Shown here is a 71-nucleotide sequence from Oikopleura dioica, a member of the family "mir-1490 microRNA precursor family". Taxonomically the source falls in Oikopleura (Eukaryota, Metazoa, Chordata, Appendicularia). The base pairs follow the family's consensus structure, which was predicted with RNAalifold. Gene Ontology terms of the family: miRNA-mediated post-transcriptional gene silencing and RISC complex.

[Rfam]
RNA sequence: ACAGUUAGGCAGUGAGUUGAUAGCGCCCUGAAAUGGAAAAAUCAGGGCCUCUCACCCACUACCAUGACUGU
Numbered sequence: 001a002c003a004g005u006u007a008g009g010c011a012g013u014g015a016g017u018u019g020a021u022a023g024c025g026c027c028c029u030g031a032a033a034u035g036g037a038a039a040a041a042u043c044a045g046g047g048c049c050u051c052u053c054a055c056c057c058a059c060u061a062c063c064a065u066g067a068c069u070g071u
Base pairs, nucleotide, nucleotide: 008063009062011060012059013058014057018054019053020052022050023049025048026047028046029045